[Rfam]
RNA sequence: AUCUUAUCAAGAGCAGGUGGAGGGACAGGCCCGAUGACACCCGGCAACCGGCGAUUUAUCGUACGGUGCUAAUUCUUGCAGAACCGAACUCUUUGUGACCACUACGGUCCUCGGUUUCUGAGAGAUGAGAG
Numbered sequence: 001a002u003c004u005u006a007u008c009a010a011g012a013g014c015a016g017g018u019g020g021a022g023g024g025a026c027a028g029g030c031c032c033g034a035u036g037a038c039a040c041c042c043g044g045c046a047a048c049c050g051g052c053g054a055u056u057u058a059u060c061g062u063a064c065g066g067u068g069c070u071a072a073u074u075c076u077u078g079c080a081g082a083a084c085c086g087a088a089c090u091c092u093u094u095g096u097g098a099c100c101a102c103u104a105c106g107g108u109c110c111u112c113g114g115u116u117u118c119u120g121a122g123a124g125a126u127g128a129g130a131g
Stems, first nucleotide, its partner, number of pairs: 002130007013042001016041003022032003026078004043070004048066002051062004074123001079120005
RNA: SAM riboswitch aptamer (S box leader)